Annotation: A member of the RNA family "SAM riboswitch aptamer (S box leader)" from Spirosoma montaniterrae, 106 nucleotides long. Pairs were carried over by alignment from the consensus structure, which is taken from published work. The organism belongs to Spirosoma, within Bacteria. The match comes from Rfam's covariance-model search (67 bits). Gene Ontology term of the family: regulation of gene expression.
[Rfam]
RNA sequence: AGCUUAUCAAGAAAGACGGAGGGACUGGACCCUGCGAUGUCUUGGCAACCGGCCACCUGGCACCGGUGCCACAUUCCACCCCAACCCAGAACGGGGCAGAUAAGGU
Numbered sequence: 001a002g003c004u005u006a007u008c009a010a011g012a013a014a015g016a017c018g019g020a021g022g023g024a025c026u027g028g029a030c031c032c033u034g035c036g037a038u039g040u041c042u043u044g045g046c047a048a049c050c051g052g053c054c055a056c057c058u059g060g061c062a063c064c065g066g067u068g069c070c071a072c073a074u075u076c077c078a079c080c081c082c083a084a085c086c087c088a089g090a091a092c093g094g095g096g097c098a099g100a101u102a103a104g105g106u
Base pairs, nucleotide, nucleotide: 001106003104004103005102006101007100008099013043014042015041016040017039021032022031023030026078027077028076029075044070045069046068047067049066050065052061053060054059074098079095080094081093